[Rfam]
RNA sequence: GGGGCUGAUUAGGAUUCGACGGGAUUCAAGACGCCUGAGGUGCAUGUCGAGGUGCGGUUGGCCUCGUAAAAAAGCCGCAUUUUAAAGUAAUCGCAAACGACGAUAACUACGCUCUAGCGGCAUAAUAGCCCGCUAGCACUUCUCCGGUGUAUGUCUGUGGACCCGGUUCUGAAGUGUCACCCUACACAGACUCGCUACGGAAACCCUGGCCGGGGUUGAAGGGUUAAAACUAAGCGGCCUCGCCUUUGUUUAUCGUGUGCGUCCGAGACUCAAAGGUUAACCAAAAGACGACACUAAACAUGUAGGACCGAUGGUCGAGGUUUUCCGGACGGGGGUUCAAAUCCCCCCAGCUCCACCA
Numbered sequence: 001g002g003g004g005c006u007g008a009u010u011a012g013g014a015u016u017c018g019a020c021g022g023g024a025u026u027c028a029a030g031a032c033g034c035c036u037g038a039g040g041u042g043c044a045u046g047u048c049g050a051g052g053u054g055c056g057g058u059u060g061g062c063c064u065c066g067u068a069a070a071a072a073a074g075c076c077g078c079a080u081u082u083u084a085a086a087g088u089a090a091u092c093g094c095a096a097a098c099g100a101c102g103a104u105a106a107c108u109a110c111g112c113u114c115u116a117g118c119g120g121c122a123u124a125a126u127a128g129c130c131c132g133c134u135a136g137c138a139c140u141u142c143u144c145c146g147g148u149g150u151a152u153g154u155c156u157g158u159g160g161a162c163c164c165g166g167u168u169c170u171g172a173a174g175u176g177u178c179a180c181c182c183u184a185c186a187c188a189g190a191c192u193c194g195c196u197a198c199g200g201a202a203a204c205c206c207u208g209g210c211c212g213g214g215g216u217u218g219a220a221g222g223g224u225u226a227a228a229a230c231u232a233a234g235c236g237g238c239c240u241c242g243c244c245u246u247u248g249u250u251u252a253u254c255g256u257g258u259g260c261g262u263c264c265g266a267g268a269c270u271c272a273a274a275g276g277u278u279a280a281c282c283a284a285a286a287g288a289c290g291a292c293a294c295u296a297a298a299c300a301u302g303u304a305g306g307a308c309c310g311a312u313g314g315u316c317g318a319g320g321u322u323u324u325c326c327g328g329a330c331g332g333g334g335g336u337u338c339a340a341a342u343c344c345c346c347c348c349a350g351c352u353c354c355a356c357c358a
Stems, first nucleotide, its partner, number of pairs: 001354007020327005027320001033315003039309003043302005048066005053079007114136007137176006144166004150161001152160001153191007195223002208240002211237001213235001242277007251268001253266003257294003261289003331347005
RNA: transfer-messenger RNA
Organism: Pseudoalteromonas ruthenica